Small nucleolar RNA SNORA79: a 143-nucleotide RNA sequence from Mesocricetus auratus. Lineage of the source: Eukaryota > Opisthokonta > Euarchontoglires > Rodentia > Mesocricetus. For this family Rfam cites "A computational screen for mammalian pseudouridylation guide H/ACA RNAs" (Schattner et al., RNA, 2006). ACA65 (SNORA79) is a member of the H/ACA class of snoRNAs that guide the sites of modification of uridines to pseudouridines. This snoRNA was identified by computational screening and its expression in mouse experimentally verified by Northern blot and primer extension analysis. The family's consensus secondary structure was predicted with RNAalifold.

RNA sequence: UGAUGACUGUUCCUCCUAUUGCCUUUAGACAUGGCACCAGGAUUUUAGGUCAUCAUAAAUUAAAAUUGAUUUUUUUCACUCAGAGAUUAACAAGAUAAUGGGAUUAUCUGUGUAUUCUCUGAAAUUUGCGGGAUCAAACAAUU
Numbered sequence: 001u002g003a004u005g006a007c008u009g010u011u012c013c014u015c016c017u018a019u020u021g022c023c024u025u026u027a028g029a030c031a032u033g034g035c036a037c038c039a040g041g042a043u044u045u046u047a048g049g050u051c052a053u054c055a056u057a058a059a060u061u062a063a064a065a066u067u068g069a070u071u072u073u074u075u076u077c078a079c080u081c082a083g084a085g086a087u088u089a090a091c092a093a094g095a096u097a098a099u100g101g102g103a104u105u106a107u108c109u110g111u112g113u114a115u116u117c118u119c120u121g122a123a124a125u126u127u128g129c130g131g132g133a134u135c136a137a138a139c140a141a142u143u
Stems, first nucleotide, its partner, number of pairs: 001055008014042004020036004068135006080122007088114002093109005
The family has 25 seed sequences and 944 matches in Rfam 15.1.